[Rfam]
RNA: IMES-1 RNA motif
RNA sequence: ACGAAACCGACCAGCAAGCAACUGCAGACGGGAGCUGGGGAGAAUCAGGAGGAAGAGACCGAAGGGCGAAAGCAUCACUAAGAGUCGACGAUAAAAAAGAGCUUAGUGAACCACCAAGAGGAAAAGAGAGAAUCCUCAAGGAGCUAAAGAGAAUCUCACUUUAGACCCCUUCGAAACUCGUUUGAGAAA
Numbered sequence: 001a002c003g004a005a006a007c008c009g010a011c012c013a014g015c016a017a018g019c020a021a022c023u024g025c026a027g028a029c030g031g032g033a034g035c036u037g038g039g040g041a042g043a044a045u046c047a048g049g050a051g052g053a054a055g056a057g058a059c060c061g062a063a064g065g066g067c068g069a070a071a072g073c074a075u076c077a078c079u080a081a082g083a084g085u086c087g088a089c090g091a092u093a094a095a096a097a098a099g100a101g102c103u104u105a106g107u108g109a110a111c112c113a114c115c116a117a118g119a120g121g122a123a124a125a126g127a128g129a130g131a132a133u134c135c136u137c138a139a140g141g142a143g144c145u146a147a148a149g150a151g152a153a154u155c156u157c158a159c160u161u162u163a164g165a166c167c168c169c170u171u172c173g174a175a176a177c178u179c180g181u182u183u184g185a186g187a188a189a
Stems, first nucleotide, its partner, number of pairs: 003046002011038005060173006075109008118137005126157004144164006